Shown here is a 94-nucleotide RNA sequence from Canis lupus, a member of the family "mir-8799 microRNA precursor family".
[Rfam]
RNA sequence: GGGGGAGCACAGGAUCCUGGGCUGUGUCCCCCAGUGCCCUGGGCUCCAGGGCCUCUGCCUCUGGAAUCACGCUCCCAGGGCCACACAGUCCCCU
Dot-bracket structure: ((((((.....((..((.(((.((((((..(..(((....(.(((....))))..)))....)))..)))).)))..)).))......))))))
The family is grouped with related families in Rfam's "mir-8791 microRNA precursor clan".
A search with the family's covariance model found it, with a score of 53 bits.